The family of this 90-nucleotide RNA sequence from Clostridium novyi is "pan motif".
RNA sequence: UGGGUAGUAUCUAUGGAGAGCUACACCUAAUUGUUAUAUUAAAAGAUAAUAUUUUUAAUCGUUGCUCAUAUCGUCAGGAAUGAGACUUUU
Number, nucleotide and partner (000 for none) at each position: 001u000002g027003g026004g024005u023006a022007g021008u020009a000010u019011c018012u000013a000014u000015g000016g000017a000018g011019a010020g008021c007022u006023a005024c004025a000026c003027c002028u000029a000030a000031u000032u000033g000034u000035u000036a000037u000038a000039u000040u000041a000042a000043a000044a000045g000046a000047u000048a000049a000050u000051a000052u000053u000054u000055u000056u000057a000058a000059u000060c000061g000062u000063u000064g086065c084066u083067c082068a081069u080070a000071u079072c078073g000074u000075c000076a000077g000078g072079a071080a069081u068082g067083a066084g065085a000086c064087u000088u000089u000090u000
It is annotated as a cis-regulatory element. Lineage of the source: Bacteria > Bacillati > Bacillota > Clostridiaceae > Clostridium novyi.